RNA sequence: GUGCUAUGAUGAUACCUUCAACUGUGGUUUUGACUUGCUGACAGUUGAAUGAGGACACUAAAUUCCUUGGCUGUGUCUGAGUGU
Number, nucleotide and partner (000 for none) at each position: 001g084002u083003g082004c081005u000006a000007u000008g000009a000010u000011g000012a000013u000014a000015c000016c000017u000018u000019c000020a000021a000022c000023u000024g000025u000026g000027g000028u000029u000030u000031u000032g000033a000034c000035u000036u000037g000038c000039u000040g000041a000042c000043a000044g000045u000046u000047g000048a000049a000050u000051g000052a000053g000054g000055a000056c000057a000058c000059u000060a000061a000062a000063u000064u000065c000066c000067u000068u000069g000070g000071c000072u000073g000074u000075g000076u000077c000078u000079g000080a000081g004082u003083g002084u001
A member of the RNA family "Small nucleolar RNA SNORD53/SNORD92" from Gopherus evgoodei, 84 nucleotides long. Its Rfam clan is "SNORD52 clan". Its family is annotated with nucleolus and RNA processing in the Gene Ontology. A reference for the family is Kiss-Laszlo et al. (1996), "Site-specific ribose methylation of preribosomal RNA: a novel function for small nucleolar RNAs", Cell.